[Rfam]
RNA sequence: CCCUUAUCUUUUAAAAGUUUUAAGUUGGUCCCUUAUCUUUAUUUUAGGUUUCAAGUUGGUCCCUUCCGUCAUUUUUUUAACUAUUUCCGUUAAAUUUGGACACGUGUCAAACUAAUUUGAACACGUGACACACUUGGACAGAUGACACAUGUCCAAAUUUAAUGGUAACAAUACAAAAUUUGACGGAAGGGAUCAACUUGAAACCUAAAAAAAGAUAAGGGACCAACUUGAAACUUUUAAAAGAUAAGGGA
Number, nucleotide and partner (000 for none) at each position: 001c000002c249003c248004u247005u246006a245007u244008c243009u000010u000011u000012u000013a000014a000015a000016a000017g000018u000019u000020u000021u000022a000023a228024g227025u226026u000027g224028g223029u222030c000031c220032c219033u218034u217035a216036u215037c214038u213039u212040u211041a000042u210043u209044u000045u207046a206047g205048g000049u000050u000051u000052c000053a000054a000055g000056u000057u000058g000059g000060u000061c000062c000063c000064u000065u000066c000067c000068g000069u000070c000071a000072u000073u000074u000075u000076u000077u000078u000079a000080a000081c000082u000083a000084u000085u000086u000087c000088c000089g000090u000091u000092a000093a000094a000095u000096u000097u000098g000099g000100a000101c000102a000103c000104g000105u000106g000107u000108c000109a000110a000111a000112c000113u000114a000115a000116u000117u000118u000119g000120a000121a000122c000123a000124c000125g000126u000127g000128a000129c000130a000131c000132a000133c000134u000135u000136g000137g000138a000139c000140a000141g000142a000143u000144g000145a000146c000147a000148c000149a000150u000151g000152u000153c000154c000155a000156a000157a000158u000159u000160u000161a000162a000163u000164g000165g000166u000167a000168a000169c000170a000171a000172u000173a000174c000175a000176a000177a000178a000179u000180u000181u000182g000183a000184c000185g000186g000187a000188a000189g000190g000191g000192a000193u000194c000195a000196a000197c000198u000199u000200g000201a000202a000203a000204c000205c047206u046207a045208a000209a043210a042211a040212a039213a038214g037215a036216u035217a034218a033219g032220g031221g000222a029223c028224c027225a000226a025227c024228u023229u000230g000231a000232a000233a000234c000235u000236u000237u000238u000239a000240a000241a000242a000243g008244a007245u006246a005247a004248g003249g002250g000251a000